c-di-AMP riboswitch aptamer (ydaO/yuaA leader): a 172-nucleotide RNA sequence from Solicola gregarius. Pairs were carried over by alignment from the consensus structure. The source organism's lineage runs through Bacteria, Actinomycetota, Propionibacteriales, Nocardioidaceae and Solicola.

RNA sequence: GGGUCCCUACCGUCAACUGCACGACGAGGGCGGAAGUGGGGGAACCACACGUUCCUCGGAGUUGGCCACGCACCACGGUGCAGGUCGACUCCUCGGGGUGAAGUCGCGAAAGCGACGGGGCACCUUCUGGCCCUAACCCGACAGCUCACCUCACAGGCGUCGGAAGGGAUCA
Numbered sequence: 001g002g003g004u005c006c007c008u009a010c011c012g013u014c015a016a017c018u019g020c021a022c023g024a025c026g027a028g029g030g031c032g033g034a035a036g037u038g039g040g041g042g043a044a045c046c047a048c049a050c051g052u053u054c055c056u057c058g059g060a061g062u063u064g065g066c067c068a069c070g071c072a073c074c075a076c077g078g079u080g081c082a083g084g085u086c087g088a089c090u091c092c093u094c095g096g097g098g099u100g101a102a103g104u105c106g107c108g109a110a111a112g113c114g115a116c117g118g119g120g121c122a123c124c125u126u127c128u129g130g131c132c133c134u135a136a137c138c139c140g141a142c143a144g145c146u147c148a149c150c151u152c153a154c155a156g157g158c159g160u161c162g163g164a165a166g167g168g169a170u171c172a
Base pairs, nucleotide, nucleotide: 004035006033036154037153038152039151040150041149046095096139097138098137104115105114106113107112118133119132120131121130